[Rfam]
RNA sequence: UGUUGCAAGUUUGAGGCUGUAACAGACGCCCUCACAGUGUAGCCUUGGUAGAUUCCAGUGAAUCUGUGAAUUCUGCU
Numbered sequence: 001u002g003u004u005g006c007a008a009g010u011u012u013g014a015g016g017c018u019g020u021a022a023c024a025g026a027c028g029c030c031c032u033c034a035c036a037g038u039g040u041a042g043c044c045u046u047g048g049u050a051g052a053u054u055c056c057a058g059u060g061a062a063u064c065u066g067u068g069a070a071u072u073c074u075g076c077u
Base pairs, nucleotide, nucleotide: 013046014045015044016043017042018041021077023075024074025073026072028040029039049066050065051064052063053062054061055060

Shown here is a 77-nucleotide RNA sequence from Crocodylus porosus, a member of the family "Mammalian CPEB3 ribozyme". Rfam 15.1 lists 5,706 matches to the family in 197 species. NCBI's taxonomy places the organism under Eukaryota, Vertebrata, Sauria, Crocodylia, Crocodylus. Pairs were carried over by alignment from the consensus structure, which is taken from published work.